[Rfam]
The record is a 173-nucleotide sequence from [Clostridium] symbiosum, which matches "Lysine riboswitch aptamer" in Rfam.
Lineage of the source: Bacteria > Bacillati > Lachnospirales > Otoolea > [Clostridium] symbiosum.
From the family's description: Riboswitches are metabolite binding domains within certain messenger RNAs that serve as precision sensors for their corresponding targets.
Pairs were carried over by alignment from the consensus structure, which is taken from published work.
A search with the family's covariance model found it, with a score of 99 bits.
RNA sequence: UAUUGAGGUAGAGGUUGCGACGAUCAUCAGUAAGCGGCCGGAUGUGGCAGGAACAGUAGAUGACCGUGGAAAGGGAAAGACGCCGAAGAACAGUGUAUCUGCAAGUGCUGUUCUGGGCAUAUGAUGAAUAAUCAUAUGACUGUCAUCAGAAACGAUGGGGAGCUACGGGAUCA
Numbered sequence: 001u002a003u004u005g006a007g008g009u010a011g012a013g014g015u016u017g018c019g020a021c022g023a024u025c026a027u028c029a030g031u032a033a034g035c036g037g038c039c040g041g042a043u044g045u046g047g048c049a050g051g052a053a054c055a056g057u058a059g060a061u062g063a064c065c066g067u068g069g070a071a072a073g074g075g076a077a078a079g080a081c082g083c084c085g086a087a088g089a090a091c092a093g094u095g096u097a098u099c100u101g102c103a104a105g106u107g108c109u110g111u112u113c114u115g116g117g118c119a120u121a122u123g124a125u126g127a128a129u130a131a132u133c134a135u136a137u138g139a140c141u142g143u144c145a146u147c148a149g150a151a152a153c154g155a156u157g158g159g160g161a162g163c164u165a166c167g168g169g170a171u172c173a
Base pairs, nucleotide, nucleotide: 008166009165010164011163017083018082019081021079024076025075034067035066036065037064039062040061087114088113089112090111091110092109093108094107095106096105098103115141116140118138119137120136121135122134123133124132125131143158144157145156146155147154